[Rfam]
RNA sequence: GGAAGCGUUUCGUCACCGGUGUGGCGCCUGGUCUUCAAAACCAGUGUGUGGGCUAAUCCUCACAGGUAGGUUCGACUCCUAUACGCUUCC
Dot-bracket structure: ((((((((..((((((....)))))).(((((.......)))))..(((((........)))))..((((.......)))).))))))))
Annotation:
Rfam assigns this 90-nucleotide sequence from Desulfovibrio ferrophilus to the family "Selenocysteine transfer RNA". The base pairs follow the family's consensus structure, which is taken from published work. The source organism's lineage runs through Bacteria, Pseudomonadati, Desulfovibrionia, Desulfovibrionales and Desulfovibrio. The family has 109 seed sequences and 4,211 matches in Rfam 15.1.